A member of the RNA family "Lysine riboswitch aptamer" from Bacillus sp. MRMR6, 179 nucleotides long.
Riboswitches are metabolite binding domains within certain messenger RNAs that serve as precision sensors for their corresponding targets.
Taxonomically the source falls in Bacillus (Bacteria, Bacillati, Caryophanales, Bacillaceae).
On this family, see Grundy et al., Proc Natl Acad Sci U S A 2003: "The L box regulon: Lysine sensing by leader RNAs of bacterial lysine biosynthesis genes".

[Rfam]
RNA sequence: AGUGAAGGUAGAGGUGCGAGCUUCAAUAGUAAUGAUUCGGAGAAGGGUGAGCUUCUAGGAUGAAUCAUGAAAGGGGAUGUUCGCCGAAGUAAGGAAAGUCUCAUUUCUUUCUUUGCUGGUCCUGUAUUGAAUAAAUGCCGGAUUGUCAAGACGACUAGUCUUGGAGAGCUAUCUUACAU
Numbered sequence: 001a002g003u004g005a006a007g008g009u010a011g012a013g014g015u016g017c018g019a020g021c022u023u024c025a026a027u028a029g030u031a032a033u034g035a036u037u038c039g040g041a042g043a044a045g046g047g048u049g050a051g052c053u054u055c056u057a058g059g060a061u062g063a064a065u066c067a068u069g070a071a072a073g074g075g076g077a078u079g080u081u082c083g084c085c086g087a088a089g090u091a092a093g094g095a096a097a098g099u100c101u102c103a104u105u106u107c108u109u110u111c112u113u114u115g116c117u118g119g120u121c122c123u124g125u126a127u128u129g130a131a132u133a134a135a136u137g138c139c140g141g142a143u144u145g146u147c148a149a150g151a152c153g154a155c156u157a158g159u160c161u162u163g164g165a166g167a168g169c170u171a172u173c174u175u176a177c178a179u
Stems, first nucleotide, its partner, number of pairs: 006174006016084006022077003032068008088117011118144005124138005146164007